[Rfam]
RNA sequence: UGCGAGACCCAUCAAAAGAAGAGUUACCUACCCAGGAGCUACUUUAUCAUAUUUUGAAUUC
Dot-bracket structure: ................(((..((((.(.......).))))..)))................
Numbered sequence: 001u002g003c004g005a006g007a008c009c010c011a012u013c014a015a016a017a018g019a020a021g022a023g024u025u026a027c028c029u030a031c032c033c034a035g036g037a038g039c040u041a042c043u044u045u046a047u048c049a050u051a052u053u054u055u056g057a058a059u060u061c
Stems, first nucleotide, its partner, number of pairs: 017045003022040004027035001